[Rfam]
RNA sequence: AUAACCUUUAAAACAAGUCCAGAGAGGCUUGCAAGGUUGUACGGGGGGAUAUUUGUGUGCUUAUCUGCAUACAAAUAUGGGUCUCUUUGCAACCGUGCAAAGAGACUUUUUUAU
Numbered sequence: 001a002u003a004a005c006c007u008u009u010a011a012a013a014c015a016a017g018u019c020c021a022g023a024g025a026g027g028c029u030u031g032c033a034a035g036g037u038u039g040u041a042c043g044g045g046g047g048g049a050u051a052u053u054u055g056u057g058u059g060c061u062u063a064u065c066u067g068c069a070u071a072c073a074a075a076u077a078u079g080g081g082u083c084u085c086u087u088u089g090c091a092a093c094c095g096u097g098c099a100a101a102g103a104g105a106c107u108u109u110u111u112u113a114u
Stems, first nucleotide, its partner, number of pairs: 003038006014031006050077011079108013
This 114-nucleotide RNA from Amphibacillus xylanus belongs to the Rfam family "PyrR binding site". The base pairs follow the family's consensus structure, which is taken from published work. From the family's description: This family represents the PyrR binding site and terminator structure. This RNA structure is found upstream of a variety of genes involved in pyrimidine biosynthesis and transport. Taxonomically the source falls in Amphibacillus xylanus (Bacteria, Bacillati, Caryophanales, Amphibacillus).